Background: Rfam assigns this 122-nucleotide sequence to the family "COG3610-DE RNA".
[Rfam]
RNA sequence: GACGAGUCGAUUAAUGAACGCGAGAUGCGUAUAUUUAUGAGAUAGAGGACAUCUGCCUUAAGUGGCAAGCACGGGAAGUGCUGAUGUUGGACGCACUGAUGUGAACAGUUUAAACGUCCACA
Numbered sequence: 001g002a003c004g005a006g007u008c009g010a011u012u013a014a015u016g017a018a019c020g021c022g023a024g025a026u027g028c029g030u031a032u033a034u035u036u037a038u039g040a041g042a043u044a045g046a047g048g049a050c051a052u053c054u055g056c057c058u059u060a061a062g063u064g065g066c067a068a069g070c071a072c073g074g075g076a077a078g079u080g081c082u083g084a085u086g087u088u089g090g091a092c093g094c095a096c097u098g099a100u101g102u103g104a105a106c107a108g109u110u111u112a113a114a115c116g117u118c119c120a121c122a
Base pairs, nucleotide, nucleotide: 006043007042008041009036010035012033013032018030019029020028021027048088049087050086051085052084053083055066056065057064068082069081070080071079072078089119090118091117095109096108097107
It is one of the family's seed sequences. The family's consensus secondary structure is taken from published work.